[Rfam]
RNA sequence: GGUUAAAAAUUUCAUUCAUUUCUACUGUUAAAAAUUGGUUCAUGUAGGUCAAUACACAUGUCAUUGUCGGGUUAUUCUACUCAAUCAUAUUAUUCUAUUCACUCAUAUCAGUUUUUAACAAUACAAAUGAAUGAAAUCUUUAAUA
Numbered sequence: 001g002g003u004u005a006a007a008a009a010u011u012u013c014a015u016u017c018a019u020u021u022c023u024a025c026u027g028u029u030a031a032a033a034a035u036u037g038g039u040u041c042a043u044g045u046a047g048g049u050c051a052a053u054a055c056a057c058a059u060g061u062c063a064u065u066g067u068c069g070g071g072u073u074a075u076u077c078u079a080c081u082c083a084a085u086c087a088u089a090u091u092a093u094u095c096u097a098u099u100c101a102c103u104c105a106u107a108u109c110a111g112u113u114u115u116u117a118a119c120a121a122u123a124c125a126a127a128u129g130a131a132u133g134a135a136a137u138c139u140u141u142a143a144u145a
Base pairs, nucleotide, nucleotide: 002144003143004142005141006140007139009137010136011135012134013133014132015131016130018128019127020126021125023123024122026120028118029117030116031115032114033113

A member of the RNA family "MIR7502 microRNA precursor family" from Gossypium anomalum, 145 nucleotides long. The family has 6 seed sequences and 74,505 matches in Rfam 15.1.